[Rfam]
RNA sequence: ACCCCACAGGUUCGCAAACUCCCUGUAUAAAAAACUAAGGAGAA
Numbered sequence: 001a002c003c004c005c006a007c008a009g010g011u012u013c014g015c016a017a018a019c020u021c022c023c024u025g026u027a028u029a030a031a032a033a034a035c036u037a038a039g040g041a042g043a044a
Stems, first nucleotide, its partner, number of pairs: 006026005016036001

Shown here is a 44-nucleotide RNA from Lacicoccus alkaliphilus, a member of the family "PreQ1 (pre queuosine) riboswitch aptamer". The base pairs follow the family's consensus structure. Rfam describes the family as follows. This family is a bacterial riboswitch that binds to the metabolite preQ1, an intermediate in the biosynthesis of the modified nucleoside queuosine from GTP. One example of this riboswitch is located in the leader of the Bacillus subtilis ykvJKLM (queCDEF) operon which encodes four genes necessary for queuosine production. PreQ1 binding to the riboswitch aptamer is thought to induce premature transcription termination within the leader to down-regulate expression of these genes. Taxonomically the source falls in Lacicoccus alkaliphilus (Bacteria, Bacillati, Caryophanales, Lacicoccus).